RNA sequence: GGAACGCAGCACGGACUGCUAUCGGGCGGCCUCCUCCUGCACCCCCACGGGCUGCAACCCCUCCAGCCCUGGGAAGAGGAGGUGUCUAGCCUGGGGAAAUUCCCCGGAUACUUGGGCAGAGAGUGCCAUCCGGAACCCGGAACAACCCUCGAGCGCCCCCGGCAACAUGCGGCGUAGAUGAGUGGUGGUGGCAGGGGGGGUGUCGUCGCUCUCGGGUGGCGUGCGCUCCUCCUCUUUCGCCUCUCGGAGUCCUAGCCGGGUGCUCGGGCCGUUUUCAUCACAGCAUAGAAAUGCAGUCAGCGUCGGCGCCUCCGCCGUGCCGGCGCCAACUCGACGGGGAUUACCUGCCGCGUUU
Number, nucleotide and partner (000 for none) at each position: 001g000002g355003a354004a353005c352006g351007c350008a000009g348010c347011a346012c000013g000014g298015a297016c296017u295018g294019c293020u000021a000022u094023c093024g092025g091026g090027c089028g000029g000030c000031c000032u082033c081034c000035u079036c078037c000038u000039g000040c000041a000042c000043c000044c000045c000046c000047a000048c000049g000050g000051g000052c000053u000054g000055c000056a000057a000058c000059c000060c000061c000062u000063c000064c000065a000066g000067c000068c000069c000070u000071g000072g000073g000074a000075a000076g000077a000078g036079g035080a000081g033082g032083u000084g000085u000086c000087u000088a000089g027090c026091c025092u024093g023094g022095g000096g000097a000098a342099a341100u340101u000102c339103c338104c337105c336106g000107g000108a000109u000110a000111c000112u000113u000114g000115g127116g126117c125118a124119g000120a000121g000122a000123g000124u118125g117126c116127c115128a000129u140130c139131c000132g137133g000134a000135a000136c000137c132138c000139g130140g129141a000142a272143c271144a000145a000146c000147c000148c000149u267150c266151g265152a264153g263154c262155g000156c000157c000158c260159c259160c258161g257162g000163c000164a000165a000166c000167a000168u000169g000170c000171g251172g250173c249174g000175u000176a000177g000178a000179u000180g245181a244182g243183u000184g000185g000186u000187g000188g000189u000190g000191g000192c000193a000194g000195g000196g000197g000198g000199g000200g000201u000202g000203u000204c000205g000206u000207c000208g000209c000210u000211c000212u000213c000214g000215g000216g000217u000218g000219g000220c000221g000222u000223g000224c000225g000226c000227u000228c000229c000230u000231c000232c000233u000234c000235u000236u000237u000238c000239g000240c000241c000242u000243c182244u181245c180246g000247g000248a000249g173250u172251c171252c000253u000254a000255g000256c000257c161258g160259g159260g158261u000262g154263c153264u152265c151266g150267g149268g000269c000270c000271g143272u142273u000274u000275u000276c000277a000278u000279c000280a000281c000282a000283g000284c000285a000286u000287a000288g000289a000290a000291a000292u000293g019294c018295a017296g016297u015298c014299a000300g326301c325302g324303u323304c322305g321306g320307c319308g318309c317310c000311u000312c000313c000314g000315c000316c000317g309318u308319g307320c306321c305322g304323g303324c302325g301326c300327c000328a000329a000330c000331u000332c000333g000334a000335c000336g105337g104338g103339g102340a100341u099342u098343a000344c000345c000346u011347g010348c009349c000350g007351c006352g005353u004354u003355u002
The family of this 355-nucleotide sequence from Ectocarpus sp. CCAP 1310/34 is "RNase MRP". Rfam classes the family as a ribozyme. The family is grouped with related families in Rfam's "RNaseP clan".